Rfam assigns this 267-nucleotide sequence from Bacillus sp. FJAT-27231 to the family "BsrG". Rfam's curators write: bsrE, bsrG and bsrH pair through intermolecular interactions with antisense sRNAs. The family's consensus secondary structure was predicted with WAR. It is annotated as a small RNA. Taxonomically the source falls in Bacillus (Bacteria, Bacillati, Bacilli, Caryophanales). Its family is annotated with autolysis and toxin activity in the Gene Ontology.
RNA sequence: CACAAUAGAAUAGGGAUUCUCAAGGGUGGUUAGCUCGUCCUCAGAAGAAAGGAGGGGGAGUGCUCGUGACGGUCUUUGAAGCGUUGAUGUUAGCAUGUACUGUUGCAGGCUUAAUCAUAGGAAUGCUGUCAUUUGACCAUAAAAAAUAACCCACCCUUGAGCCUGCAAGCAUAAAGGGUGAGUUAGGUUCGUUUUGAAUAAAUUAUAGCGAUCGCCCUAGCAGGGAACCGUCUAUUGUAUCGACCGCUUGGUGUUCCAGCACCAGCG
Numbered sequence: 001c002a003c004a005a006u007a008g009a010a011u012a013g014g015g016a017u018u019c020u021c022a023a024g025g026g027u028g029g030u031u032a033g034c035u036c037g038u039c040c041u042c043a044g045a046a047g048a049a050a051g052g053a054g055g056g057g058g059a060g061u062g063c064u065c066g067u068g069a070c071g072g073u074c075u076u077u078g079a080a081g082c083g084u085u086g087a088u089g090u091u092a093g094c095a096u097g098u099a100c101u102g103u104u105g106c107a108g109g110c111u112u113a114a115u116c117a118u119a120g121g122a123a124u125g126c127u128g129u130c131a132u133u134u135g136a137c138c139a140u141a142a143a144a145a146a147u148a149a150c151c152c153a154c155c156c157u158u159g160a161g162c163c164u165g166c167a168a169g170c171a172u173a174a175a176g177g178g179u180g181a182g183u184u185a186g187g188u189u190c191g192u193u194u195u196g197a198a199u200a201a202a203u204u205a206u207a208g209c210g211a212u213c214g215c216c217c218u219a220g221c222a223g224g225g226a227a228c229c230g231u232c233u234a235u236u237g238u239a240u241c242g243a244c245c246g247c248u249u250g251g252u253g254u255u256c257c258a259g260c261a262c263c264a265g266c267g
Stems, first nucleotide, its partner, number of pairs: 002238004007233003015213004019161008028151004035059002039055004068130006081096001083094001106121001172200002215225002245267003249264006